[Rfam]
RNA sequence: AUGCGAAUAUUCUCGCUGCCCUGAUAUUCCGGUGAUCAGGGGAGGCUAGACAUUCGCUAUAUUAAAACUAUGCAUUGUGUCCUCCAGGACUGGACUGCUGCUCUAGUACUGGCUUUGAAAAUGCUAGUGACAUAC
Numbered sequence: 001a002u003g004c005g006a007a008u009a010u011u012c013u014c015g016c017u018g019c020c021c022u023g024a025u026a027u028u029c030c031g032g033u034g035a036u037c038a039g040g041g042g043a044g045g046c047u048a049g050a051c052a053u054u055c056g057c058u059a060u061a062u063u064a065a066a067a068c069u070a071u072g073c074a075u076u077g078u079g080u081c082c083u084c085c086a087g088g089a090c091u092g093g094a095c096u097g098c099u100g101c102u103c104u105a106g107u108a109c110u111g112g113c114u115u116u117g118a119a120a121a122u123g124c125u126a127g128u129g130a131c132a133u134a135c
Stems, first nucleotide, its partner, number of pairs: 003057003016044002019041007067128004072124002084112004089107005